[Rfam]
RNA sequence: AAAACUAAAUAUUAGCGCAUCAAUAUAAUGUGGAAGAUAUGGUUCCUGAGUUUCUACCAAACGACCGUAAAUUGUUUGACUAUUGAUAAGUUGUUUACUAUG
Numbered sequence: 001a002a003a004a005c006u007a008a009a010u011a012u013u014a015g016c017g018c019a020u021c022a023a024u025a026u027a028a029u030g031u032g033g034a035a036g037a038u039a040u041g042g043u044u045c046c047u048g049a050g051u052u053u054c055u056a057c058c059a060a061a062c063g064a065c066c067g068u069a070a071a072u073u074g075u076u077u078g079a080c081u082a083u084u085g086a087u088a089a090g091u092u093g094u095u096u097a098c099u100a101u102g
Base pairs, nucleotide, nucleotide: 019087020086021085022084023083024082025081029049032046033045034044035043058078059077060076061075062074063073064072
Description: The record is a 102-nucleotide sequence from Sedimentibacter hydroxybenzoicus, which matches "Purine riboswitch aptamer" in Rfam. Its Rfam clan is "Purine riboswitches". It scores 78 bits against the family's covariance model. The organism belongs to Sedimentibacter hydroxybenzoicus, within Bacteria.